[Rfam]
RNA sequence: GCAGUGUUGAUAUGUCUGAUAUUCUUGGGUUGUGCGAAGUCAACCGGCAUGUCAGACAUAUCGGCCACUGU
Numbered sequence: 001g002c003a004g005u006g007u008u009g010a011u012a013u014g015u016c017u018g019a020u021a022u023u024c025u026u027g028g029g030u031u032g033u034g035c036g037a038a039g040u041c042a043a044c045c046g047g048c049a050u051g052u053c054a055g056a057c058a059u060a061u062c063g064g065c066c067a068c069u070g071u
Stems, first nucleotide, its partner, number of pairs: 008063015028045004
RNA: mir-50 microRNA precursor family
Organism: Thelazia callipaeda